[Rfam]
Shown here is a 99-nucleotide sequence from Microcebus murinus, a member of the family "Vault RNA". The base pairs follow the family's consensus structure, which is taken from published work. By type it is a non-coding RNA gene. The source organism's lineage runs through Eukaryota, Gnathostomata, Mammalia, Primates and Microcebus. The match comes from Rfam's covariance-model search (46 bits).
RNA sequence: CGGCUGGCUUUAGCUCAGUGGUUCCUUCGACAGUGUUCUAGCCAACUUCUCUGUGGAGGCAGAGCAGUUGGAAACACCUGGGCACUCUCCAACCCUUUA
Numbered sequence: 001c002g003g004c005u006g007g008c009u010u011u012a013g014c015u016c017a018g019u020g021g022u023u024c025c026u027u028c029g030a031c032a033g034u035g036u037u038c039u040a041g042c043c044a045a046c047u048u049c050u051c052u053g054u055g056g057a058g059g060c061a062g063a064g065c066a067g068u069u070g071g072a073a074a075c076a077c078c079u080g081g082g083c084a085c086u087c088u089c090c091a092a093c094c095c096u097u098u099a
Stems, first nucleotide, its partner, number of pairs: 002094002005091003013083004018079001020077001026073003030069001